Shown here is a 35-nucleotide RNA from Taibaiella soli, a member of the family "DUF805b RNA". Rfam classes the family as a cis-regulatory element. The source organism's lineage runs through Bacteria, Pseudomonadati, Chitinophagales, Chitinophagaceae and Taibaiella.

[Rfam]
RNA sequence: CGGGAGGACGCCGAAAAUCCGGAACAGAGUAGGCA
Number, nucleotide and partner (000 for none) at each position: 001c000002g000003g020004g019005a018006g000007g000008a000009c000010g034011c033012c032013g000014a000015a000016a000017a000018u005019c004020c003021g000022g000023a000024a000025c000026a000027g000028a000029g000030u000031a000032g012033g011034c010035a000